[Rfam]
RNA sequence: AGUGUUAUAGCUUUGAAGCGCUAUAAAAGCGUUAUUUGUAAGCGCGUUUAAUACCCUUUAGAAUCAUUUGACAAAGAUCAAAAGCCCACAAAAAACAAGAACUAAUGAGAAUUAGGAUUGGAGUAAUAAUGGUGGCCACGACUGGACUUGAACCAGCGACCACUACCA
Numbered sequence: 001a002g003u004g005u006u007a008u009a010g011c012u013u014u015g016a017a018g019c020g021c022u023a024u025a026a027a028a029g030c031g032u033u034a035u036u037u038g039u040a041a042g043c044g045c046g047u048u049u050a051a052u053a054c055c056c057u058u059u060a061g062a063a064u065c066a067u068u069u070g071a072c073a074a075a076g077a078u079c080a081a082a083a084g085c086c087c088a089c090a091a092a093a094a095a096c097a098a099g100a101a102c103u104a105a106u107g108a109g110a111a112u113u114a115g116g117a118u119u120g121g122a123g124u125a126a127u128a129a130u131g132g133u134g135g136c137c138a139c140g141a142c143u144g145g146a147c148u149u150g151a152a153c154c155a156g157c158g159a160c161c162a163c164u165a166c167c168a
Stems, first nucleotide, its partner, number of pairs: 024050003030044004067082003130165006139158002142156004
This 168-nucleotide RNA from Helicobacter pylori belongs to the Rfam family "Bacterial antisense RNA HPnc0260".
A reference for the family is Sharma et al. (2010), "The primary transcriptome of the major human pathogen Helicobacter pylori", Nature.
The sequence is in the family's curated seed alignment.
The base pairs follow the family's consensus structure, which was predicted with CMfinder.